[Rfam]
RNA sequence: ACAUCAGUGAGGUAUAUCCUUACCUGUUGUCUUAGAAUUAAGACUUCAGAACAUGAUGAUUGGAUUCUAUGAAUGUGUGAUUAUAUUUCACAUUUAUCAAGAAACAGCAACAUCUUGAUGAAUCCUGUCUGAU
Numbered sequence: 001a002c003a004u005c006a007g008u009g010a011g012g013u014a015u016a017u018c019c020u021u022a023c024c025u026g027u028u029g030u031c032u033u034a035g036a037a038u039u040a041a042g043a044c045u046u047c048a049g050a051a052c053a054u055g056a057u058g059a060u061u062g063g064a065u066u067c068u069a070u071g072a073a074u075g076u077g078u079g080a081u082u083a084u085a086u087u088u089c090a091c092a093u094u095u096a097u098c099a100a101g102a103a104a105c106a107g108c109a110a111c112a113u114c115u116u117g118a119u120g121a122a123u124c125c126u127g128u129c130u131g132a133u
Stems, first nucleotide, its partner, number of pairs: 024049003029044005071089002078083001093122009